RNA sequence: GUCUGGGCGCGCAGCGAGUACGGCCAGUCCCCCUCGCCGCCGUACAGCAGCUGGUCGCCGACGUGGCUGCCGUCGGCGAGGACGCCGAGGACGGUCUCGUCGCCGUAUUUGCCGGUGCCCAGCUGCUCGAAGCGGCCGUGCGCGAUGAGGAUCAGGCGGUCGGCCGGGGUGUCCUGCGCGACCAGCACGUCGCCGCGGGCCAGCUCGCGCUGGCGGAACCGGCCGGCCAGCGCGUCCAGGGCCUCGGGCUCGGCGUCGAAGGUCCGCAGCGGCGGCAGUUCGCGCAGCUCCUGCGGGAUGACGCGGACCUCGCCCGCGGUGGAGGUGAAUUCGACCAGACCAUCGCCGAGGGAAUGAGUGAGACGGCGGUUGACGCGGUACGAGCCGCCCUUCACCUCCGUCCAGGGAAGCAUCUUCAGCAGCCAGCGGGAGGAAAUCCCCUGCAUCUGCGGGGGAGUUUUGGUGGUGGUGGCAAGAUUACGGGCUGCCGCGGUGGCAAGGCUCCGCUGCGCGUUCU
Numbered sequence: 001g002u003c004u005g006g007g008c009g010c011g012c013a014g015c016g017a018g019u020a021c022g023g024c025c026a027g028u029c030c031c032c033c034u035c036g037c038c039g040c041c042g043u044a045c046a047g048c049a050g051c052u053g054g055u056c057g058c059c060g061a062c063g064u065g066g067c068u069g070c071c072g073u074c075g076g077c078g079a080g081g082a083c084g085c086c087g088a089g090g091a092c093g094g095u096c097u098c099g100u101c102g103c104c105g106u107a108u109u110u111g112c113c114g115g116u117g118c119c120c121a122g123c124u125g126c127u128c129g130a131a132g133c134g135g136c137c138g139u140g141c142g143c144g145a146u147g148a149g150g151a152u153c154a155g156g157c158g159g160u161c162g163g164c165c166g167g168g169g170u171g172u173c174c175u176g177c178g179c180g181a182c183c184a185g186c187a188c189g190u191c192g193c194c195g196c197g198g199g200c201c202a203g204c205u206c207g208c209g210c211u212g213g214c215g216g217a218a219c220c221g222g223c224c225g226g227c228c229a230g231c232g233c234g235u236c237c238a239g240g241g242c243c244u245c246g247g248g249c250u251c252g253g254c255g256u257c258g259a260a261g262g263u264c265c266g267c268a269g270c271g272g273c274g275g276c277a278g279u280u281c282g283c284g285c286a287g288c289u290c291c292u293g294c295g296g297g298a299u300g301a302c303g304c305g306g307a308c309c310u311c312g313c314c315c316g317c318g319g320u321g322g323a324g325g326u327g328a329a330u331u332c333g334a335c336c337a338g339a340c341c342a343u344c345g346c347c348g349a350g351g352g353a354a355u356g357a358g359u360g361a362g363a364c365g366g367c368g369g370u371u372g373a374c375g376c377g378g379u380a381c382g383a384g385c386c387g388c389c390c391u392u393c394a395c396c397u398c399c400g401u402c403c404a405g406g407g408a409a410g411c412a413u414c415u416u417c418a419g420c421a422g423c424c425a426g427c428g429g430g431a432g433g434a435a436a437u438c439c440c441c442u443g444c445a446u447c448u449g450c451g452g453g454g455g456a457g458u459u460u461u462g463g464u465g466g467u468g469g470u471g472g473c474a475a476g477a478u479u480a481c482g483g484g485c486u487g488c489c490g491c492g493g494u495g496g497c498a499a500g501g502c503u504c505c506g507c508u509g510c511g512c513g514u515u516c517u
Stems, first nucleotide, its partner, number of pairs: 006402004011397001016392001018340002022336001028334002034328002041325001043323001045321002048318001054317002057314001059312003063245001066242003069236001071234003075119003084112001086111004091106005127230001129228001136221001138219002141215002143212002147208001149206001158201002164198003168194003172187001175184002246308001249305001252302001254300004262294002266290001268289003272283003343352002363391001365389005374382002403443005409437001413433001415430003419427001449491004454486002457481002459477003463473002492516002496510002499508002
The record is a 517-nucleotide RNA sequence from Streptomyces coryli, which matches "Saccharopolyspora sRNA 350" in Rfam.
By type it is an antisense RNA.
On this family, see Liu et al., PLoS One 2013: "Prediction and characterization of small non-coding RNAs related to secondary metabolites in Saccharopolyspora erythraea".
Lineage of the source: Bacteria > Actinomycetota > Actinomycetes > Kitasatosporales > Streptomyces.
It scores 97 bits against the family's covariance model.